About this RNA
The record is a 75-nucleotide sequence, which matches "RAGATH-18 RNA" in Rfam. Rfam's curators put it in the seed alignment. Rfam describes the family as follows. Actinobacteria, Firmicutes, Fusobacteria, Thermotogae (1 example). It is annotated as a small RNA.
Nucleotides: 075
Stems, first nucleotide, its partner, number of pairs: 001073005009062005022057003031049002036045002
Number, partner (000 for none) and nucleotide at each position: 001073c002072c003071u004070a005069u006000g007000g008000a009062g010061a011060g012059u013058a014000c015000a016000a017000a018000a019000c020000a021000a022057u023056g024055u025000g026000a027000g028000u029000a030000c031049u032048g033000a034000u035000u036045g037044g038000g039000g040000a041000c042000a043000u044037c045036c046000a047000u048032c049031a050000u051000g052000a053000a054000a055024g056023c057022a058013u059012a060011c061010u062009c063000g064000a065000c066000g067000a068000a069005a070004u071003a072002g073001g074000a075000a